[Rfam]
RNA sequence: GCGGACACCCCAGCAGGGCCGCACCGAUUCAAAGCGGCCCCGCCCCAUCUUCCC
Numbered sequence: 001g002c003g004g005a006c007a008c009c010c011c012a013g014c015a016g017g018g019c020c021g022c023a024c025c026g027a028u029u030c031a032a033a034g035c036g037g038c039c040c041c042g043c044c045c046c047a048u049c050u051u052c053c054c
Stems, first nucleotide, its partner, number of pairs: 002026003013043001016040003020036003